[Rfam]
Small nucleolar RNA snoR100: a 110-nucleotide RNA from Arachis hypogaea. Its family is annotated with nucleolus and RNA processing in the Gene Ontology.
RNA sequence: AAAGGAAGGCAGCAUGGUUGUGUGUACGGAAAUUGAUUUCUUUAGGGUCAACAUGUCUGCUCUCAAUGAUAACUACUCCUGAUUUGAGGGCCUGGUUCAUACCUACAUUU
Numbered sequence: 001a002a003a004g005g006a007a008g009g010c011a012g013c014a015u016g017g018u019u020g021u022g023u024g025u026a027c028g029g030a031a032a033u034u035g036a037u038u039u040c041u042u043u044a045g046g047g048u049c050a051a052c053a054u055g056u057c058u059g060c061u062c063u064c065a066a067u068g069a070u071a072a073c074u075a076c077u078c079c080u081g082a083u084u085u086g087a088g089g090g091c092c093u094g095g096u097u098c099a100u101a102c103c104u105a106c107a108u109u110u
Base pairs, nucleotide, nucleotide: 012025013024014023015022045093046092047091048090049089055083056082057081059077

Pairs were carried over by alignment from the consensus structure, which was predicted with WAR. The source organism's lineage runs through Eukaryota, Viridiplantae, Magnoliopsida, Dalbergieae and Arachis. Rfam classes the family as an H/ACA-box small nucleolar RNA.